[Rfam]
Rfam assigns this 504-nucleotide part of an RNA from haloarchaeon 2ANA_DGR to the family "Archaeal small subunit ribosomal RNA". Rfam links the family to the GO terms ribosome and structural constituent of ribosome. The literature on the family includes a 2002 paper in BMC Bioinformatics by Cannone et al., "The comparative RNA web (CRW) site: an online database of comparative sequence and structure information for ribosomal, intron, and other RNAs". Rfam 15.1 lists 709 matches to the family in 491 species.
RNA sequence: AACUCGGUGAUUCCUGCCGGAGGCCAUUGCUAUCAGGGUCCGAUUUAGCCAUGCUAGUCGCACGAGUUCACACUCGUGGCAUAUAGCUCCGUAACACGUGGCCAAACUACCCUUCGGAGACGCAUAACCUCGGGAAACUGAGGCUAAUUCGUCACACGGCUUUCAACCUGGAAUGAUGAAAGCCUCAAACGCUCCGGCGCCGAAGGAUGUGGCUGCGGCCGAUUAGGUAGACGGUGGGGUAACGGCCCACCGUGCCGAUAAUCGGUACGGGUUGUGAGAGCAAGAACCCGGAGACGGAAUCUGAGACAAGAUUCCGGGCCCUACGGGGCGCAGCAGGCGCGAAACCUUUACACUGCACGACAGUGCGAUAAGGGGACCCUGAGUGCACAGGCAUAGUGCCUGUGCUUUUCUCGACCGUAGGGAGGUCGAGGAACAAGAGCUGGGCAAGACCGGUGCCAGCCGCCGCGGUAAUACCGGCAGCUCGAGUGAUGGCCGAUCUUAUUG
Numbered sequence: 001a002a003c004u005c006g007g008u009g010a011u012u013c014c015u016g017c018c019g020g021a022g023g024c025c026a027u028u029g030c031u032a033u034c035a036g037g038g039u040c041c042g043a044u045u046u047a048g049c050c051a052u053g054c055u056a057g058u059c060g061c062a063c064g065a066g067u068u069c070a071c072a073c074u075c076g077u078g079g080c081a082u083a084u085a086g087c088u089c090c091g092u093a094a095c096a097c098g099u100g101g102c103c104a105a106a107c108u109a110c111c112c113u114u115c116g117g118a119g120a121c122g123c124a125u126a127a128c129c130u131c132g133g134g135a136a137a138c139u140g141a142g143g144c145u146a147a148u149u150c151g152u153c154a155c156a157c158g159g160c161u162u163u164c165a166a167c168c169u170g171g172a173a174u175g176a177u178g179a180a181a182g183c184c185u186c187a188a189a190c191g192c193u194c195c196g197g198c199g200c201c202g203a204a205g206g207a208u209g210u211g212g213c214u215g216c217g218g219c220c221g222a223u224u225a226g227g228u229a230g231a232c233g234g235u236g237g238g239g240u241a242a243c244g245g246c247c248c249a250c251c252g253u254g255c256c257g258a259u260a261a262u263c264g265g266u267a268c269g270g271g272u273u274g275u276g277a278g279a280g281c282a283a284g285a286a287c288c289c290g291g292a293g294a295c296g297g298a299a300u301c302u303g304a305g306a307c308a309a310g311a312u313u314c315c316g317g318g319c320c321c322u323a324c325g326g327g328g329c330g331c332a333g334c335a336g337g338c339g340c341g342a343a344a345c346c347u348u349u350a351c352a353c354u355g356c357a358c359g360a361c362a363g364u365g366c367g368a369u370a371a372g373g374g375g376a377c378c379c380u381g382a383g384u385g386c387a388c389a390g391g392c393a394u395a396g397u398g399c400c401u402g403u404g405c406u407u408u409u410c411u412c413g414a415c416c417g418u419a420g421g422g423a424g425g426u427c428g429a430g431g432a433a434c435a436a437g438a439g440c441u442g443g444g445c446a447a448g449a450c451c452g453g454u455g456c457c458a459g460c461c462g463c464c465g466c467g468g469u470a471a472u473a474c475c476g477g478c479a480g481c482u483c484g485a486g487u488g489a490u491g492g493c494c495g496a497u498c499u500u501a502u503u504g
Stems, first nucleotide, its partner, number of pairs: 004020005022494010033382009042340001048338003052335003057080003062077006087293003097217007106210002111206007119153004128143006158184008168175001191198002219265003226256003231253008268290004272283004295316006318329004346372001348371003354367005385405008410430007437483006450477004459466002